[Rfam]
RNA sequence: AUAAUGAUACUUCAUAGUAAAUGCCGGCUUGUCUUGAAUAGAGGCGGUAGUUCAAAUUGGACUAAUGU
Numbered sequence: 001a002u003a004a005u006g007a008u009a010c011u012u013c014a015u016a017g018u019a020a021a022u023g024c025c026g027g028c029u030u031g032u033c034u035u036g037a038a039u040a041g042a043g044g045c046g047g048u049a050g051u052u053c054a055a056a057u058u059g060g061a062c063u064a065a066u067g068u
Base pairs, nucleotide, nucleotide: 012065013023014022015021024047025046026045028043029042030041048064049063050062051061052060